[Rfam]
RNA sequence: AUUUGCUCGUGAAGAAGCGAGUGUUUCCUAGAAAGACGGAAAGACCCUGUGAACUUUUACUGUAUCUUUGCAUUGUCUUAAAUGUUUUAUUGUACAGUUAAGUGGUAGUUUUAAACUCAUGUGAGAGUCCACUCUUUAAAACAUUUAGACUAAUUUAAUAAAAAACAGUGCAAGGAAGGCAGUUUGUCUGGGGCGGAAUCCUUUUAAAGAGUAACAAAGGAGUGCAAAGGUAAGCUAUGCUUUAAAAAGCAAAAAGUAUAACGGCGAGAUAAGCUUGCUUGACUGUAAGAAACACUUUUCGAGCAGGGACUUUUAAAGUCGGCCGUAAUGAUCUGGUGUUUUUGUAUGGAAAAGACAUCACUUAACGAAUAAAAAGUACUCCAGGGAUAACAGGCUAAUGUUUUUCAAGAGCUCAUAUCUAAAAAAACGUUUGGCACCUCGAUGUCGACUCAACGCAACCUGAAGCUGUAGUAGGUUUCAAGGGUUUGGCUGUUCGCCGAUUAAAGCGUUACGCGAGUUGGGUUUAGAACGCCGUGAGGCAGUUUGGUCCCUAUCUUCUAGGAAAAAG
Numbered sequence: 001a002u003u004u005g006c007u008c009g010u011g012a013a014g015a016a017g018c019g020a021g022u023g024u025u026u027c028c029u030a031g032a033a034a035g036a037c038g039g040a041a042a043g044a045c046c047c048u049g050u051g052a053a054c055u056u057u058u059a060c061u062g063u064a065u066c067u068u069u070g071c072a073u074u075g076u077c078u079u080a081a082a083u084g085u086u087u088u089a090u091u092g093u094a095c096a097g098u099u100a101a102g103u104g105g106u107a108g109u110u111u112u113a114a115a116c117u118c119a120u121g122u123g124a125g126a127g128u129c130c131a132c133u134c135u136u137u138a139a140a141a142c143a144u145u146u147a148g149a150c151u152a153a154u155u156u157a158a159u160a161a162a163a164a165a166c167a168g169u170g171c172a173a174g175g176a177a178g179g180c181a182g183u184u185u186g187u188c189u190g191g192g193g194c195g196g197a198a199u200c201c202u203u204u205u206a207a208a209g210a211g212u213a214a215c216a217a218a219g220g221a222g223u224g225c226a227a228a229g230g231u232a233a234g235c236u237a238u239g240c241u242u243u244a245a246a247a248a249g250c251a252a253a254a255a256g257u258a259u260a261a262c263g264g265c266g267a268g269a270u271a272a273g274c275u276u277g278c279u280u281g282a283c284u285g286u287a288a289g290a291a292a293c294a295c296u297u298u299u300c301g302a303g304c305a306g307g308g309a310c311u312u313u314u315a316a317a318g319u320c321g322g323c324c325g326u327a328a329u330g331a332u333c334u335g336g337u338g339u340u341u342u343u344g345u346a347u348g349g350a351a352a353a354g355a356c357a358u359c360a361c362u363u364a365a366c367g368a369a370u371a372a373a374a375a376g377u378a379c380u381c382c383a384g385g386g387a388u389a390a391c392a393g394g395c396u397a398a399u400g401u402u403u404u405u406c407a408a409g410a411g412c413u414c415a416u417a418u419c420u421a422a423a424a425a426a427a428c429g430u431u432u433g434g435c436a437c438c439u440c441g442a443u444g445u446c447g448a449c450u451c452a453a454c455g456c457a458a459c460c461u462g463a464a465g466c467u468g469u470a471g472u473a474g475g476u477u478u479c480a481a482g483g484g485u486u487u488g489g490c491u492g493u494u495c496g497c498c499g500a501u502u503a504a505a506g507c508g509u510u511a512c513g514c515g516a517g518u519u520g521g522g523u524u525u526a527g528a529a530c531g532c533c534g535u536g537a538g539g540c541a542g543u544u545u546g547g548u549c550c551c552u553a554u555c556u557u558c559u560a561g562g563a564a565a566a567a568g
Base pairs, nucleotide, nucleotide: 005022006021007020008019009018025564026563027562028561029560030559031558032557034556035555036554038551039550046385047384048383049382051381052380053377054376055375056374057373059183060182061181062180066175067174068173069172070171071170072169075150076149077148078147080146081145082144083143084142085141086140087139088138089137092134101133102132103131104130105129108116109115110114154163155162156161187197188196189195199221200220201219202218203217204216222366224323225322230278231277232276233275234274235273236255239250240249241248242247256265257264283306284305285304286303289300290299291298308320309319310318334360335359336358337357338356339355340354342353343352394435395434396433398432399429400428401427402426403425404424405423409419410418446521447519448518449517450516451513452510453509454508455507456506459484460483462479463478464477465476466475467474486500487499488498489497490496527545528544529543530542531540532539533538
Rfam assigns this 568-nucleotide part of an RNA to the family "Bacterial large subunit ribosomal RNA".